Rfam assigns this 32-nucleotide sequence to the family "L31-Firmicutes ribosomal protein leader". It is annotated as a cis-regulatory leader. Its Rfam clan is "Ribosomal Protein L31 Leader clan". A reference for the family is Eckert and Weinberg (2020), "Discovery of 20 novel ribosomal leader candidates in bacteria and archaea", BMC Microbiol. The base pairs follow the family's consensus structure, which is taken from published work.
RNA sequence: CUAUGGCAUAUAUUUUGUCAUGGCGGAAGGAG
Numbered sequence: 001c002u003a004u005g006g007c008a009u010a011u012a013u014u015u016u017g018u019c020a021u022g023g024c025g026g027a028a029g030g031a032g
Base pairs, nucleotide, nucleotide: 001023002022003021004020005019006018007017008016
Dot-bracket structure: ((((((((.......)))))))).........

The sequence is in the family's curated seed alignment.